[Rfam]
RNA: Bacterial large subunit ribosomal RNA, nucleotides 2054 to 2638
RNA sequence: CCCGCAGCAAGACGGAAAGACCCCGUGAACCUUCACUGUAGCUUGUGGUGACUUCUGGGCGGGACCGUGCAGGAUAGGUGGGAGGCUAAGAGGCCGGGGCGUCAGCCCCGGCGGAGCCGACCUUGAGAUACCACCCUGUCCCCUCUGGCAGUCUAACCGAGGCCCGCUUCCGGGCCCGGGACCCCGCCUGGUGGGCGGUUUGACUGGGGCGGUCGCCUCCCAAAGCGUAACGGAGGCGCGCGAUGGUCCCCUCAGCCGGUAUGGAAACCCGGCGCAGAGCGCAAAGGCACAAGGGGGCCUGACUGCAAGAGGGACACCUCGAGCAGGGACGAAAGUCGGCCUUAGUGAUCCGGUGGCCCCGAGUGGGAGGGCCAUCGCUCAACGGAUAAAAGGUACUCCGGGGAUAACAGGCUAAUCGCGCCCAAGAGUUCACAUCGACGGCGCGGUUUGGCACCUCGAUGUCGGCUCAUCGCAUCCUGGGGCUGAAGCAGGUCCCAAGGGUAUGGCUGUUCGCCAUUUAAAGCGGUACGCGAGCUGGGUUCAGAACGUCGUGAGACAGUUCGGUCCCUAUCUGCUGCGGGCACA
Numbered sequence: 001c002c003c004g005c006a007g008c009a010a011g012a013c014g015g016a017a018a019g020a021c022c023c024c025g026u027g028a029a030c031c032u033u034c035a036c037u038g039u040a041g042c043u044u045g046u047g048g049u050g051a052c053u054u055c056u057g058g059g060c061g062g063g064a065c066c067g068u069g070c071a072g073g074a075u076a077g078g079u080g081g082g083a084g085g086c087u088a089a090g091a092g093g094c095c096g097g098g099g100c101g102u103c104a105g106c107c108c109c110g111g112c113g114g115a116g117c118c119g120a121c122c123u124u125g126a127g128a129u130a131c132c133a134c135c136c137u138g139u140c141c142c143c144u145c146u147g148g149c150a151g152u153c154u155a156a157c158c159g160a161g162g163c164c165c166g167c168u169u170c171c172g173g174g175c176c177c178g179g180g181a182c183c184c185c186g187c188c189u190g191g192u193g194g195g196c197g198g199u200u201u202g203a204c205u206g207g208g209g210c211g212g213u214c215g216c217c218u219c220c221c222a223a224a225g226c227g228u229a230a231c232g233g234a235g236g237c238g239c240g241c242g243a244u245g246g247u248c249c250c251c252u253c254a255g256c257c258g259g260u261a262u263g264g265a266a267a268c269c270c271g272g273c274g275c276a277g278a279g280c281g282c283a284a285a286g287g288c289a290c291a292a293g294g295g296g297g298c299c300u301g302a303c304u305g306c307a308a309g310a311g312g313g314a315c316a317c318c319u320c321g322a323g324c325a326g327g328g329a330c331g332a333a334a335g336u337c338g339g340c341c342u343u344a345g346u347g348a349u350c351c352g353g354u355g356g357c358c359c360c361g362a363g364u365g366g367g368a369g370g371g372c373c374a375u376c377g378c379u380c381a382a383c384g385g386a387u388a389a390a391a392g393g394u395a396c397u398c399c400g401g402g403g404a405u406a407a408c409a410g411g412c413u414a415a416u417c418g419c420g421c422c423c424a425a426g427a428g429u430u431c432a433c434a435u436c437g438a439c440g441g442c443g444c445g446g447u448u449u450g451g452c453a454c455c456u457c458g459a460u461g462u463c464g465g466c467u468c469a470u471c472g473c474a475u476c477c478u479g480g481g482g483c484u485g486a487a488g489c490a491g492g493u494c495c496c497a498a499g500g501g502u503a504u505g506g507c508u509g510u511u512c513g514c515c516a517u518u519u520a521a522a523g524c525g526g527u528a529c530g531c532g533a534g535c536u537g538g539g540u541u542c543a544g545a546a547c548g549u550c551g552u553g554a555g556a557c558a559g560u561u562c563g564g565u566c567c568c569u570a571u572c573u574g575c576u577g578c579g580g581g582c583a584c585a
Stems, first nucleotide, its partner, number of pairs: 001581008010573003014568002022402004027398002029394005035199004042191002045187003050153004055148005061142005067136001077135005084118003093112008157179003161176006202214004215237006238383001240340002246298006252278002255273005279288002303326004309320003328337003351377007359370002411452003415449001416446007426436002463538001464536004468530001469527005476501002479496006503517005544562004548557003